This 286-nucleotide sequence from Phaeosphaeria sp. MPI-PUGE-AT-0046c belongs to the Rfam family "A. fumigatus sRNA Afu_309". The organism belongs to Phaeosphaeria, within Eukaryota. Rfam 15.1 lists 663 matches to the family in 646 species.
RNA sequence: CUCCUCUUCUCUCACCACGACCUGUGUCCGCUUUCCCGUCCGCCCUUCUGGGCGUGUUCUGGUUGAAUGCUGGCAAUUCGUCCGUUACCAUGGAGCCAUCUCUUGUCAAUAGAUGUCAAUUUCUGGACGACAGGUCGCAGAGAGAGUCGGGGCGAUGCUGGAAGCCUGAGUUCGCCUGCAAAGGUUUGAGCUCGGUCGAAGGCGCGUGCCAGGCGGACUGAUUCCUGUUCCCUUUUGCUAGGCCGUCGGCCACUGAUGCUUGGGACAAACCCAGUCGGCUACAUGC
Numbered sequence: 001c002u003c004c005u006c007u008u009c010u011c012u013c014a015c016c017a018c019g020a021c022c023u024g025u026g027u028c029c030g031c032u033u034u035c036c037c038g039u040c041c042g043c044c045c046u047u048c049u050g051g052g053c054g055u056g057u058u059c060u061g062g063u064u065g066a067a068u069g070c071u072g073g074c075a076a077u078u079c080g081u082c083c084g085u086u087a088c089c090a091u092g093g094a095g096c097c098a099u100c101u102c103u104u105g106u107c108a109a110u111a112g113a114u115g116u117c118a119a120u121u122u123c124u125g126g127a128c129g130a131c132a133g134g135u136c137g138c139a140g141a142g143a144g145a146g147u148c149g150g151g152g153c154g155a156u157g158c159u160g161g162a163a164g165c166c167u168g169a170g171u172u173c174g175c176c177u178g179c180a181a182a183g184g185u186u187u188g189a190g191c192u193c194g195g196u197c198g199a200a201g202g203c204g205c206g207u208g209c210c211a212g213g214c215g216g217a218c219u220g221a222u223u224c225c226u227g228u229u230c231c232c233u234u235u236u237g238c239u240a241g242g243c244c245g246u247c248g249g250c251c252a253c254u255g256a257u258g259c260u261u262g263g264g265a266c267a268a269a270c271c272c273a274g275u276c277g278g279c280u281a282c283a284u285g286c
Base pairs, nucleotide, nucleotide: 018137019136020135021134022133023132024131025130026074027073028072030070033067034066035065036062037061038059040056042053043052044051045050083129084128085127086126088125091118092117093116095114097112146210148208152205153204154203164196165195166194168193169192170191171190172189173188174185175184176183177182215279216276217275218274219273220272229265230264231263232262237259238258241251242250243249244248